[Rfam]
Record summary: The family of this 96-nucleotide RNA from Nicotiana sylvestris is "MIR6152 microRNA precursor family". It scores 93 bits against the family's covariance model. The family's consensus secondary structure was predicted with RNAalifold.
RNA sequence: UGGACAUAUUAUUGUAUUCGACCGUAUUCACGGCGUGAAACAGGAGAUUACACUGUUUUUAAAAGAAAAGUAAAUCAAUUAACAUAAUAGACUCCU
Numbered sequence: 001u002g003g004a005c006a007u008a009u010u011a012u013u014g015u016a017u018u019c020g021a022c023c024g025u026a027u028u029c030a031c032g033g034c035g036u037g038a039a040a041c042a043g044g045a046g047a048u049u050a051c052a053c054u055g056u057u058u059u060u061a062a063a064a065g066a067a068a069a070g071u072a073a074a075u076c077a078a079u080u081a082a083c084a085u086a087a088u089a090g091a092c093u094c095c096u
Base pairs, nucleotide, nucleotide: 002095003094004093009090010089011088012087013086014085015084017082018081020080021079024076026075027074028073030071031070034065036063037059038058039057040056041055042054043053
Lineage of the source: Eukaryota > Gunneridae > asterids > Nicotianoideae > Nicotiana. Gene Ontology terms of the family: RISC complex and miRNA-mediated post-transcriptional gene silencing.